Rfam assigns this 127-nucleotide RNA sequence from Dorcoceras hygrometricum to the family "mir-393 microRNA precursor family". The pairing is the family consensus, mapped onto this sequence. Its family is annotated with miRNA-mediated post-transcriptional gene silencing and RISC complex in the Gene Ontology. Rfam 15.1 lists 1,052 matches to the family in 221 species.
[Rfam]
RNA sequence: AAAGGAAGAAUCCGAAGGGAUAGCAUGAUCCAAAACUCAAUAGCAUAUGAAUCUACAUAACGAAUCAAUGGAUUGAAAUCUGAAAAUACUGAAACGGGAUCAAUGCGAUCCCUUUGGACUCCUCCUU
Numbered sequence: 001a002a003a004g005g006a007a008g009a010a011u012c013c014g015a016a017g018g019g020a021u022a023g024c025a026u027g028a029u030c031c032a033a034a035a036c037u038c039a040a041u042a043g044c045a046u047a048u049g050a051a052u053c054u055a056c057a058u059a060a061c062g063a064a065u066c067a068a069u070g071g072a073u074u075g076a077a078a079u080c081u082g083a084a085a086a087u088a089c090u091g092a093a094a095c096g097g098g099a100u101c102a103a104u105g106c107g108a109u110c111c112c113u114u115u116g117g118a119c120u121c122c123u124c125c126u127u
Base pairs, nucleotide, nucleotide: 002127003126004125005124006123008121009120011118012117013116014115015114016113017112018111019110020109021108023106024105025104026102027101028100029099030098031097